[Rfam]
RNA: Small nucleolar RNA SNORA79
RNA sequence: CGACGUCAGUUCCUCUUCCUGCUUGCAGUUAGCAGGAGGCUUUAGUGAUGUCGCAGACAGACGUGGGUCCUUUUCACCCGGGAAGCUUUAGGCUGCCGCCGAACUCACAGCUUCCUGGUUUUGCGGGACCCAACAAAU
Numbered sequence: 001c002g003a004c005g006u007c008a009g010u011u012c013c014u015c016u017u018c019c020u021g022c023u024u025g026c027a028g029u030u031a032g033c034a035g036g037a038g039g040c041u042u043u044a045g046u047g048a049u050g051u052c053g054c055a056g057a058c059a060g061a062c063g064u065g066g067g068u069c070c071u072u073u074u075c076a077c078c079c080g081g082g083a084a085g086c087u088u089u090a091g092g093c094u095g096c097c098g099c100c101g102a103a104c105u106c107a108c109a110g111c112u113u114c115c116u117g118g119u120u121u122u123g124c125g126g127g128a129c130c131c132a133a134c135a136a137a138u
Base pairs, nucleotide, nucleotide: 001053002052003051004050005049006048007047008046015039016038017037018036020034021033022032023031066130067129068128069127070126071125078118079117080116081115082114083113084112085111086110087109091105092104094102